RNA sequence: AUGGGAGAUUUCUGGGAGGAGUCUCUCCAUCAAUCUUGAGAGAGAAUUCAACACCCGGGGGGAGGGAGGAAAAGGCUACAUAAUUCAAUUUCCUCUCCCCCCCAUAGAAACUCUUUAUCAGUUUGUCCAUGCUGCACAGCCAUUAGCUUCAGCAACAAAUCCUACGGGGCCUCUGGCGAGCGCAUGGCGAACCGGCAAGUCACAGAUCGGCGAUGGUGAACUCCGAAACCGUAGUCGGAGUCAC
Numbered sequence: 001a002u003g004g005g006a007g008a009u010u011u012c013u014g015g016g017a018g019g020a021g022u023c024u025c026u027c028c029a030u031c032a033a034u035c036u037u038g039a040g041a042g043a044g045a046a047u048u049c050a051a052c053a054c055c056c057g058g059g060g061g062g063a064g065g066g067a068g069g070a071a072a073a074g075g076c077u078a079c080a081u082a083a084u085u086c087a088a089u090u091u092c093c094u095c096u097c098c099c100c101c102c103c104a105u106a107g108a109a110a111c112u113c114u115u116u117a118u119c120a121g122u123u124u125g126u127c128c129a130u131g132c133u134g135c136a137c138a139g140c141c142a143u144u145a146g147c148u149u150c151a152g153c154a155a156c157a158a159a160u161c162c163u164a165c166g167g168g169g170c171c172u173c174u175g176g177c178g179a180g181c182g183c184a185u186g187g188c189g190a191a192c193c194g195g196c197a198a199g200u201c202a203c204a205g206a207u208c209g210g211c212g213a214u215g216g217u218g219a220a221c222u223c224c225g226a227a228a229c230c231g232u233a234g235u236c237g238g239a240g241u242c243a244c
Stems, first nucleotide, its partner, number of pairs: 061096006112190002115187001126182001128180001220241007
Shown here is a 244-nucleotide RNA from Ananas comosus, a member of the family "Early nodulin 40". Lineage of the source: Eukaryota > Streptophytina > Mesangiospermae > Petrosaviidae > Ananas. For this family Rfam cites "Identification of conserved secondary structures and expansion segments in enod40 RNAs reveals new enod40 homologues in plants" (Gultyaev and Roussis, Nucleic Acids Res, 2007). Rfam classes the family as a non-coding RNA gene.